Description:
A member of the RNA family "chrB-a RNA" from Sphingomonas aliaeris, 79 nucleotides long. A search with the family's covariance model found it, with a score of 82 bits.

RNA sequence: AGCAUGGGGACUGCGAUCUCCCCAUGAGGCGUCAGCCAAAGAAUCGCGUCCAGCUCGAUUUUGCUAAGGACGCGUCAUG
Numbered sequence: 001a002g003c004a005u006g007g008g009g010a011c012u013g014c015g016a017u018c019u020c021c022c023c024a025u026g027a028g029g030c031g032u033c034a035g036c037c038a039a040a041g042a043a044u045c046g047c048g049u050c051c052a053g054c055u056c057g058a059u060u061u062u063g064c065u066a067a068g069g070a071c072g073c074g075u076c077a078u079g
Base pairs, nucleotide, nucleotide: 005024006023007022008021009020010019046073047072048071049070050069051068